RNA sequence: ACACGGGAAAGGAGGUGGUCCGAGAGGUGAUUGAUCUACGGACGCGUGAGGUGGCUGCCCGCUAGCCGCCGUCGAAGUCGGACGGGCUCCUUCGAUCCCACGACCGCGAACGGUCCCCUCGGGGACGCCGUGGCCAGCGAGAUCCAGGCAGUCACCGUUGGCCCGCAGGAGCCGCGCCUCGUCCAGCGCGGCGGUCCCUCACCGAGGGGCAGCCUGCGGGCCUUCACCU
Numbered sequence: 001a002c003a004c005g006g007g008a009a010a011g012g013a014g015g016u017g018g019u020c021c022g023a024g025a026g027g028u029g030a031u032u033g034a035u036c037u038a039c040g041g042a043c044g045c046g047u048g049a050g051g052u053g054g055c056u057g058c059c060c061g062c063u064a065g066c067c068g069c070c071g072u073c074g075a076a077g078u079c080g081g082a083c084g085g086g087c088u089c090c091u092u093c094g095a096u097c098c099c100a101c102g103a104c105c106g107c108g109a110a111c112g113g114u115c116c117c118c119u120c121g122g123g124g125a126c127g128c129c130g131u132g133g134c135c136a137g138c139g140a141g142a143u144c145c146a147g148g149c150a151g152u153c154a155c156c157g158u159u160g161g162c163c164c165g166c167a168g169g170a171g172c173c174g175c176g177c178c179u180c181g182u183c184c185a186g187c188g189c190g191g192c193g194g195u196c197c198c199u200c201a202c203c204g205a206g207g208g209g210c211a212g213c214c215u216g217c218g219g220g221c222c223u224u225c226a227c228c229u
Stems, first nucleotide, its partner, number of pairs: 014059006060139004065134002070127003160222010172191006
The record is a 229-nucleotide RNA sequence from Angustibacter sp. Root456, which matches "Actinobacteria sRNA Ms_IGR-5" in Rfam. The pairing is the family consensus, mapped onto this sequence. The source organism's lineage runs through Bacteria, Bacillati, Actinomycetes, Kineosporiales and Angustibacter. The family's RNA type in Rfam is small RNA.